[Rfam]
RNA sequence: AUACCUUCUCGGCCUUUUGGCUAUGAUCAAGUGUAGUAUCUGUUCUUAUCAGUGUGACAACUGAUAUGGGUCCUACGGGACCUAUUAAUAGUCACAGAAAUUUUUUUCUGGGUGAAUGCGAUCUCUGAGCUUGCUCAUGUCUCGUUCAAAUUGUUGCCUCGUCCUUACACUACCGACUUGUGCGGCAUACCCUCU
Numbered sequence: 001a002u003a004c005c006u007u008c009u010c011g012g013c014c015u016u017u018u019g020g021c022u023a024u025g026a027u028c029a030a031g032u033g034u035a036g037u038a039u040c041u042g043u044u045c046u047u048a049u050c051a052g053u054g055u056g057a058c059a060a061c062u063g064a065u066a067u068g069g070g071u072c073c074u075a076c077g078g079g080a081c082c083u084a085u086u087a088a089u090a091g092u093c094a095c096a097g098a099a100a101u102u103u104u105u106u107u108c109u110g111g112g113u114g115a116a117u118g119c120g121a122u123c124u125c126u127g128a129g130c131u132u133g134c135u136c137a138u139g140u141c142u143c144g145u146u147c148a149a150a151u152u153g154u155u156g157c158c159u160c161g162u163c164c165u166u167a168c169a170c171u172a173c174c175g176a177c178u179u180g181u182g183c184g185g186c187a188u189a190c191c192c193u194c195u
Stems, first nucleotide, its partner, number of pairs: 007026002011022004047066006068083006113148006120141001126137004152187005158180001161177003